[Rfam]
RNA sequence: AAACUCAUAUGUGUAUAACACACACGUAUCGGCACAUACGCCGGGGUGCCCUGAGGAGCUUGCUCUGAUUGGUCGGCGUUAUGGGAUACGUGGAGGCAUAAC
Numbered sequence: 001a002a003a004c005u006c007a008u009a010u011g012u013g014u015a016u017a018a019c020a021c022a023c024a025c026g027u028a029u030c031g032g033c034a035c036a037u038a039c040g041c042c043g044g045g046g047u048g049c050c051c052u053g054a055g056g057a058g059c060u061u062g063c064u065c066u067g068a069u070u071g072g073u074c075g076g077c078g079u080u081a082u083g084g085g086a087u088a089c090g091u092g093g094a095g096g097c098a099u100a101a102c
Stems, first nucleotide, its partner, number of pairs: 023092008035083004040077004048073003
This 102-nucleotide RNA from Chimaeribacter arupi belongs to the Rfam family "t44 RNA".